[Rfam]
RNA sequence: CCAAAGGCUCUUUUAAGAGCCACCUAUUUUCUCAAUCGAAAGGGCU
Number, nucleotide and partner (000 for none) at each position: 001c000002c000003a000004a000005a000006g021007g020008c019009u018010c017011u016012u000013u000014u000015a000016a011017g010018a009019g008020c007021c006022a000023c000024c000025u000026a000027u000028u000029u000030u000031c000032u000033c000034a000035a000036u000037c000038g000039a000040a000041a000042g000043g000044g000045c000046u000
The family of this 46-nucleotide RNA sequence from Chaetura pelagica is "Histone 3' UTR stem-loop". Lineage of the source: Eukaryota > Deuterostomia > Chordata > Strisores > Chaetura. The literature on the family includes a 1995 paper in Nucleic Acids Res by Williams and Marzluff, "The sequence of the stem and flanking sequences at the 3' end of histone mRNA are critical determinants for the binding of the stem-loop binding protein". By type it is a cis-regulatory element. Its family is annotated with mRNA 3'-end processing by stem-loop binding and cleavage in the Gene Ontology.